[Rfam]
RNA sequence: UAGCGGUUUGGGUAACCCAGCCGUAAGGUUGAGGUAUAAAGCUAUGGACCUAAUGCUUUAAAAGCUAUGACUACCAGGCUGCUAAA
Dot-bracket structure: ...........((....(((((....)))))....))..((((.(((..(....((((...))))...)....)))))))......
Rfam assigns this 86-nucleotide sequence from Desulfotruncus arcticus to the family "c-di-GMP-I riboswitch aptamer". GEMM was predicted in a large-scale screen for bacterial structured RNA regulatory elements. Genes associated with GEMM are involved in a diverse array of functions, including chemotaxis regulation, signal transduction, secretion and chitin. Lineage of the source: Bacteria > Bacillati > Desulfallaceae > Desulfotruncus > Desulfotruncus arcticus. The base pairs follow the family's consensus structure, which is taken from published work.